[Rfam]
RNA sequence: UGGAGAAGUCAAUGAUGGUUUUUUCCAACAUGUCUGAACCUGUCUGAAGCAUCUCAAUGAUGCAAUCUCUUUGUGAUUCUGAGACUUCUCUGAGA
Number, nucleotide and partner (000 for none) at each position: 001u000002g000003g000004a089005g088006a087007a086008g085009u084010c083011a000012a000013u000014g000015a000016u000017g000018g000019u000020u000021u000022u000023u000024u000025c000026c000027a000028a000029c000030a000031u000032g000033u000034c000035u000036g000037a000038a000039c000040c000041u000042g000043u000044c000045u000046g000047a000048a000049g000050c000051a000052u000053c000054u000055c000056a000057a000058u000059g000060a000061u000062g000063c000064a000065a000066u000067c000068u000069c000070u000071u000072u000073g000074u000075g000076a000077u000078u000079c000080u000081g000082a000083g010084a009085c008086u007087u006088c005089u004090c000091u000092g000093a000094g000095a000
The record is a 95-nucleotide sequence from Galemys pyrenaicus, which matches "Small nucleolar RNA SNORD91 family" in Rfam.
Rfam links the family to the GO terms RNA processing and nucleolus.
The pairing is the family consensus, mapped onto this sequence.
It scores 108 bits against the family's covariance model.